[Rfam]
A member of the RNA family "A. fumigatus sRNA Afu_309" from Penicillium canariense, 319 nucleotides long.
RNA sequence: UCUCUUCUUACAACCACGGAUCUGUGUCCAGCACUCCUGUUCACGGAGAACCAGCUUGCCUGGUCUCUCUGUGUUUCGGUUGAGAGCUGGGCAGAUCGACGACCAUGGAGCCAUCCAUCUUCCACGUGUAUGGCGAAUUUACGCGUUCCUGUCGACAGAUCUCAGAUCAAAUGUUUGCGCCGGGUUUCCUCGGGUCUUGAGCUCCCUCUGGUGAGCUCGGCUUGAGAGCCAGGUUGCGGACGGCGUCAUAUUCCAUUUCUCUUUGCCGAUUGGCCGUUGGCCAGUGAGGUUAGGGAUAAACCAUGACCAGCCAACAUAC
Numbered sequence: 001u002c003u004c005u006u007c008u009u010a011c012a013a014c015c016a017c018g019g020a021u022c023u024g025u026g027u028c029c030a031g032c033a034c035u036c037c038u039g040u041u042c043a044c045g046g047a048g049a050a051c052c053a054g055c056u057u058g059c060c061u062g063g064u065c066u067c068u069c070u071g072u073g074u075u076u077c078g079g080u081u082g083a084g085a086g087c088u089g090g091g092c093a094g095a096u097c098g099a100c101g102a103c104c105a106u107g108g109a110g111c112c113a114u115c116c117a118u119c120u121u122c123c124a125c126g127u128g129u130a131u132g133g134c135g136a137a138u139u140u141a142c143g144c145g146u147u148c149c150u151g152u153c154g155a156c157a158g159a160u161c162u163c164a165g166a167u168c169a170a171a172u173g174u175u176u177g178c179g180c181c182g183g184g185u186u187u188c189c190u191c192g193g194g195u196c197u198u199g200a201g202c203u204c205c206c207u208c209u210g211g212u213g214a215g216c217u218c219g220g221c222u223u224g225a226g227a228g229c230c231a232g233g234u235u236g237c238g239g240a241c242g243g244c245g246u247c248a249u250a251u252u253c254c255a256u257u258u259c260u261c262u263u264u265g266c267c268g269a270u271u272g273g274c275c276g277u278u279g280g281c282c283a284g285u286g287a288g289g290u291u292a293g294g295g296a297u298a299a300a301c302c303a304u305g306a307c308c309a310g311c312c313a314a315c316a317u318a319c
Base pairs, nucleotide, nucleotide: 018162019161020160021159022158023157024156025155026092027091028090029089030088031087034084035083036082037079038078039077042073043072044071045070046069047068048067049066051063052062053061054059100154101153102152103151106141107140108139110134111133112132173237174236179234180233181232183230184229193222194221195220196219199218200217201216202215203214204213205211206210242312243311244310245307246306247305248304249303258296259295260294261293262292265290266289267288272282273281274280275279

It is annotated as a small RNA.